[Rfam]
Background
This 314-nucleotide RNA sequence from Halohasta litchfieldiae belongs to the Rfam family "Archaeal signal recognition particle RNA". Its Rfam clan is "SRP clan". Gene Ontology terms of the family: signal recognition particle, plasma membrane targeting and SRP-dependent cotranslational protein targeting to membrane, signal sequence recognition.
RNA sequence: GGAUGGACUAGGUCGGGCAGUUAGGCCCUGCUCUGCACCCGUGAGACAGUCUUUAGCGGGGACCGAAUGCCGGGGACGUCGGGUCGAACCGACACAGGCCUCGGAAGCCAACGUCGAAACCUCGUCCACCGGGGACAGUGGACCGGUGUGCUCACCCGCAGGGGUGUCACACACUGGUUUGCCGGCGGUAGUGGGUCAGGCGCGGAAGCGAGCAGCCCACCGCUGGACACCCGUCGCUCGUUGGAUCGCGGGGUGGAGGAGGCGACCGAGAUUCCCUGUGUUUGGAACACCCGGCAAUCCCGGUGUGUCCGUCA
Numbered sequence: 001g002g003a004u005g006g007a008c009u010a011g012g013u014c015g016g017g018c019a020g021u022u023a024g025g026c027c028c029u030g031c032u033c034u035g036c037a038c039c040c041g042u043g044a045g046a047c048a049g050u051c052u053u054u055a056g057c058g059g060g061g062a063c064c065g066a067a068u069g070c071c072g073g074g075g076a077c078g079u080c081g082g083g084u085c086g087a088a089c090c091g092a093c094a095c096a097g098g099c100c101u102c103g104g105a106a107g108c109c110a111a112c113g114u115c116g117a118a119a120c121c122u123c124g125u126c127c128a129c130c131g132g133g134g135a136c137a138g139u140g141g142a143c144c145g146g147u148g149u150g151c152u153c154a155c156c157c158g159c160a161g162g163g164g165u166g167u168c169a170c171a172c173a174c175u176g177g178u179u180u181g182c183c184g185g186c187g188g189u190a191g192u193g194g195g196u197c198a199g200g201c202g203c204g205g206a207a208g209c210g211a212g213c214a215g216c217c218c219a220c221c222g223c224u225g226g227a228c229a230c231c232c233g234u235c236g237c238u239c240g241u242u243g244g245a246u247c248g249c250g251g252g253g254u255g256g257a258g259g260a261g262g263c264g265a266c267c268g269a270g271a272u273u274c275c276c277u278g279u280g281u282u283u284g285g286a287a288c289a290c291c292c293g294g295c296a297a298u299c300c301c302g303g304u305g306u307g308u309c310c311g312u313c314a
Stems, first nucleotide, its partner, number of pairs: 002313007011064004015033006038060005068305008078295005089284001091282008100270005107263003112258001114256001119254007126244003130240004134235003138231001139229002141179010153166005182226007192219005201210003